[Rfam]
RNA sequence: GGCUUUCUUCGCGGCGGAGCUCGACCGCCCCUCCCGCUGAUCGUGGCCUACAUCGAUCAGCACAAGCUCGAACACGGGGUCGAGCCGGUCUGCGCGGUCCUCACCGAGGCCGGCGCGAAGAUCGCCCCG
Numbered sequence: 001g002g003c004u005u006u007c008u009u010c011g012c013g014g015c016g017g018a019g020c021u022c023g024a025c026c027g028c029c030c031c032u033c034c035c036g037c038u039g040a041u042c043g044u045g046g047c048c049u050a051c052a053u054c055g056a057u058c059a060g061c062a063c064a065a066g067c068u069c070g071a072a073c074a075c076g077g078g079g080u081c082g083a084g085c086c087g088g089u090c091u092g093c094g095c096g097g098u099c100c101u102c103a104c105c106g107a108g109g110c111c112g113g114c115g116c117g118a119a120g121a122u123c124g125c126c127c128c129g
Stems, first nucleotide, its partner, number of pairs: 013029005075129005086124002089121003093117003
Shown here is a 129-nucleotide sequence from Blastococcus sp. CCUG 61487, a member of the family "ALIL pseudoknot". The literature on the family includes a 2008 paper in J Biol Chem by Mazauric et al., "Apical loop-internal loop RNA pseudoknots: a new type of stimulator of -1 translational frameshifting in bacteria". Pairs were carried over by alignment from the consensus structure, which is taken from published work. Lineage of the source: Bacteria > Bacillati > Actinomycetota > Geodermatophilales > Blastococcus.